[Rfam]
RNA: Group II catalytic intron D1-D4-2
Organism: Kineosporia babensis
RNA sequence: GAAGGUUUUGUGGCCCUUCGGGGCCGUUCUGCGAGGGACGGCUUCAAACCGCCUCGAGCUGCGUUGGCUGAAGACCGUCGUGGUGAGCGUCGAGGAAAAGGCGCACGAGAUGCGUCAGGU
Numbered sequence: 001g002a003a004g005g006u007u008u009u010g011u012g013g014c015c016c017u018u019c020g021g022g023g024c025c026g027u028u029c030u031g032c033g034a035g036g037g038a039c040g041g042c043u044u045c046a047a048a049c050c051g052c053c054u055c056g057a058g059c060u061g062c063g064u065u066g067g068c069u070g071a072a073g074a075c076c077g078u079c080g081u082g083g084u085g086a087g088c089g090u091c092g093a094g095g096a097a098a099a100g101g102c103g104c105a106c107g108a109g110a111u112g113c114g115u116c117a118g119g120u
Stems, first nucleotide, its partner, number of pairs: 001019005020045006027038004050119001052095006058084002061081003065077003100116006